RNA: mir-980 microRNA precursor family
Organism: Ooceraea biroi
RNA sequence: AUUACGUUGCGGCUCGUCAUCGGGCACUUUGCUAUCAUAAAUGCAAGCUGCCUUUUGAAGGGCAACACCGUGGU
Numbered sequence: 001a002u003u004a005c006g007u008u009g010c011g012g013c014u015c016g017u018c019a020u021c022g023g024g025c026a027c028u029u030u031g032c033u034a035u036c037a038u039a040a041a042u043g044c045a046a047g048c049u050g051c052c053u054u055u056u057g058a059a060g061g062g063c064a065a066c067a068c069c070g071u072g073g074u
Stems, first nucleotide, its partner, number of pairs: 004071003008067002012063004017058003023052002028047005